[Rfam]
RNA: PyrD leader
RNA sequence: AUUCCAAUUGAUCAGGGGAUGCCGGAUAAUCGGCCCCCGGUUUGCAACCGGGAAAUCAGGAGAGUACAUGUAC
Numbered sequence: 001a002u003u004c005c006a007a008u009u010g011a012u013c014a015g016g017g018g019a020u021g022c023c024g025g026a027u028a029a030u031c032g033g034c035c036c037c038c039g040g041u042u043u044g045c046a047a048c049c050g051g052g053a054a055a056u057c058a059g060g061a062g063a064g065u066a067c068a069u070g071u072a073c
Base pairs, nucleotide, nucleotide: 036052037051038050039049040048041047